[Rfam]
RNA sequence: GCCGGGGUCGCCUAGCCUGGUCAAGGGCGCCGGACUCAUAAUCCGGUCUUCCCGGGUUCGAAUCCCGGCCCCGGCA
Numbered sequence: 001g002c003c004g005g006g007g008u009c010g011c012c013u014a015g016c017c018u019g020g021u022c023a024a025g026g027g028c029g030c031c032g033g034a035c036u037c038a039u040a041a042u043c044c045g046g047u048c049u050u051c052c053c054g055g056g057u058u059c060g061a062a063u064c065c066c067g068g069c070c071c072c073g074g075c076a
Base pairs, nucleotide, nucleotide: 001075002074003073004072005071006070007069010028011027012026013025030046031045032044033043034042052068053067054066055065056064
RNA: tRNA
Organism: Thermofilum pendens